[Rfam]
RNA sequence: GCAGACGGUUGAUUCGUCCCGGUGCAGGAAGCGCGCGGACAUAAGGAAACGGAACCAAGCGGGCAAUGCCCGGUCGGGAUGGCGAAGC
Number, nucleotide and partner (000 for none) at each position: 001g025002c024003a023004g000005a000006c000007g020008g019009u000010u000011g000012a000013u000014u000015c000016g000017u000018c000019c008020c007021g000022g000023u003024g002025c001026a000027g000028g000029a000030a000031g000032c000033g000034c000035g000036c000037g000038g000039a000040c000041a000042u000043a000044a000045g000046g000047a000048a000049a000050c000051g000052g000053a000054a000055c077056c076057a000058a074059g000060c072061g071062g070063g069064c068065a000066a000067u000068g064069c063070c062071c061072g060073g000074u058075c000076g056077g055078g000079a000080u000081g000082g000083c000084g000085a000086a000087g000088c000
Rfam assigns this 88-nucleotide RNA sequence from Enterocloster bolteae to the family "RAGATH-28 RNA".
Rfam's curators put it in the seed alignment.
The source organism's lineage runs through Bacteria, Bacillati, Bacillota, Clostridia and Enterocloster bolteae.